[Rfam]
RNA sequence: UUACUGGUGAAAGUCCAGUCAAGAUAGUGGUCAAGCAGUCUUGUAGCCAGCAACCAGCGUAAGUAGUAAUAUGAGCGUUGAAGCGUUGUGUAGGCAAGUCAGCUGGAUUUAUUGUAU
Numbered sequence: 001u002u003a004c005u006g007g008u009g010a011a012a013g014u015c016c017a018g019u020c021a022a023g024a025u026a027g028u029g030g031u032c033a034a035g036c037a038g039u040c041u042u043g044u045a046g047c048c049a050g051c052a053a054c055c056a057g058c059g060u061a062a063g064u065a066g067u068a069a070u071a072u073g074a075g076c077g078u079u080g081a082a083g084c085g086u087u088g089u090g091u092a093g094g095c096a097a098g099u100c101a102g103c104u105g106g107a108u109u110u111a112u113u114g115u116a117u
Stems, first nucleotide, its partner, number of pairs: 020043005050089005055080006064071002096110005

Source information:
This 117-nucleotide RNA from Andreesenella acetica belongs to the Rfam family "Group II catalytic intron D1-D4-4". Rfam's curators write: Group II introns are found in rRNA, tRNA and mRNA of organelles in fungi, plants and protists, and also in mRNA in bacteria. It scores 66 bits against the family's covariance model.